RNA sequence: GGGCAUACCCAUUGACCCGGCCUGGCUGUGCGAUGGCCAGGCAAGGGGGACAGCAUAUGCCAGAGUGAGUCGGAGUCCCUGCAGGCCCUAGCUCCCUUCCCAGGGGCUGGGAAAAUCUCGGUGCUCUCACAUUC
Numbered sequence: 001g002g003g004c005a006u007a008c009c010c011a012u013u014g015a016c017c018c019g020g021c022c023u024g025g026c027u028g029u030g031c032g033a034u035g036g037c038c039a040g041g042c043a044a045g046g047g048g049g050a051c052a053g054c055a056u057a058u059g060c061c062a063g064a065g066u067g068a069g070u071c072g073g074a075g076u077c078c079c080u081g082c083a084g085g086c087c088c089u090a091g092c093u094c095c096c097u098u099c100c101c102a103g104g105g106g107c108u109g110g111g112a113a114a115a116u117c118u119c120g121g122u123g124c125u126c127u128c129a130c131a132u133u134c
Stems, first nucleotide, its partner, number of pairs: 003060005016046002020042005072127004077123001080120002092110002096106001
The record is a 134-nucleotide RNA sequence from Carlito syrichta, which matches "Small nucleolar RNA SNORA58" in Rfam. A reference for the family is Huttenhofer et al. (2001), "RNomics: an experimental approach that identifies 201 candidates for novel, small, non-messenger RNAs in mouse", EMBO J. About the family: ACA52 is a member of the H/ACA class of snoRNA that guide the sites of modification of uridines to pseudouridines. Taxonomically the source falls in Carlito (Eukaryota, Metazoa, Craniata, Gnathostomata). Pairs were carried over by alignment from the consensus structure, which was predicted with PFOLD.